[Rfam]
RNA sequence: CAGUGGGGACGACCCCGCCGCGCUAUCCAGUGCGCUUUCCAUCCGGGGACGGCCCCA
Numbered sequence: 001c002a003g004u005g006g007g008g009a010c011g012a013c014c015c016c017g018c019c020g021c022g023c024u025a026u027c028c029a030g031u032g033c034g035c036u037u038u039c040c041a042u043c044c045g046g047g048g049a050c051g052g053c054c055c056c057a
Stems, first nucleotide, its partner, number of pairs: 001020001003018006045056004

This 57-nucleotide sequence from Pseudomonas sp. ABC1 belongs to the Rfam family "Guanidine-II riboswitch aptamer (mini-ykkC)". Its family is annotated with regulation of gene expression in the Gene Ontology. Simpler in structure and has fewer highly conserved nucleotide positions than the ykkC-yxkD leader.